[Rfam]
RNA: mir-8/mir-141/mir-200 microRNA precursor family
Organism: Branchiostoma lanceolatum
RNA sequence: UGUGCCAUCUUACCUGGCGGGGUUUAGACGGCUCUGAGCUCUAACACUGUCUGGUAAUGAUGACGGG
Numbered sequence: 001u002g003u004g005c006c007a008u009c010u011u012a013c014c015u016g017g018c019g020g021g022g023u024u025u026a027g028a029c030g031g032c033u034c035u036g037a038g039c040u041c042u043a044a045c046a047c048u049g050u051c052u053g054g055u056a057a058u059g060a061u062g063a064c065g066g067g
Stems, first nucleotide, its partner, number of pairs: 003065002006062004010057005016051005022045001024044005